[Rfam]
RNA sequence: UCGCAUGAUGCACCCCGGGCUUCUCUGAAGAUCGCCUUGAUGAUGACGGCCCCAAUGCUCGUGCUAGAACACUAUAGCCGUCCGUGUUGCAGUUCAGCCUUCACUUUGUGAAACCCAUGGCUGAUCUGUGUCAAUUCGACCGCGACAUCC
Numbered sequence: 001u002c003g004c005a006u007g008a009u010g011c012a013c014c015c016c017g018g019g020c021u022u023c024u025c026u027g028a029a030g031a032u033c034g035c036c037u038u039g040a041u042g043a044u045g046a047c048g049g050c051c052c053c054a055a056u057g058c059u060c061g062u063g064c065u066a067g068a069a070c071a072c073u074a075u076a077g078c079c080g081u082c083c084g085u086g087u088u089g090c091a092g093u094u095c096a097g098c099c100u101u102c103a104c105u106u107u108g109u110g111a112a113a114c115c116c117a118u119g120g121c122u123g124a125u126c127u128g129u130g131u132c133a134a135u136u137c138g139a140c141c142g143c144g145a146c147a148u149c150c
Stems, first nucleotide, its partner, number of pairs: 003064006010058002017052005022046002024043002077143002080140003085133002088130005097121003

Rfam assigns this 150-nucleotide RNA from Punica granatum to the family "small nucleolar RNA snoR134". It scores 88 bits against the family's covariance model. The base pairs follow the family's consensus structure, which was predicted with RNAalifold. Lineage of the source: Eukaryota > Streptophyta > Streptophytina > Lythraceae > Punica. On this family, see Chen and Wu, Nucleic Acids Res 2009: "Mining small RNA sequencing data: a new approach to identify small nucleolar RNAs in Arabidopsis".